Rfam assigns this 95-nucleotide RNA from Treponema vincentii to the family "TD-2 RNA". The family's consensus secondary structure is taken from published work. Its Rfam clan is "TD (Treponema denticola) motifs". Rfam 15.1 lists 310 matches to the family in 11 species. On this family, see Weinberg et al., Nucleic Acids Res 2007: "Identification of 22 candidate structured RNAs in bacteria using the CMfinder comparative genomics pipeline". The organism belongs to Treponema vincentii, within Bacteria. Rfam classes the family as a small RNA. A search with the family's covariance model found it, with a score of 74 bits.
RNA sequence: ACUGCCAAGGAGGGCAGUGGUUUCAAGCAGAAGCAAGUUUGCUCCUGCAAACUUGUAGCCCAAAAAUGAACAAGGAUGUUCAUUUUUGGGCGUGC
Numbered sequence: 001a002c003u004g005c006c007a008a009g010g011a012g013g014g015c016a017g018u019g020g021u022u023u024c025a026a027g028c029a030g031a032a033g034c035a036a037g038u039u040u041g042c043u044c045c046u047g048c049a050a051a052c053u054u055g056u057a058g059c060c061c062a063a064a065a066a067u068g069a070a071c072a073a074g075g076a077u078g079u080u081c082a083u084u085u086u087u088g089g090g091c092g093u094g095c
Stems, first nucleotide, its partner, number of pairs: 001018006034055009058091014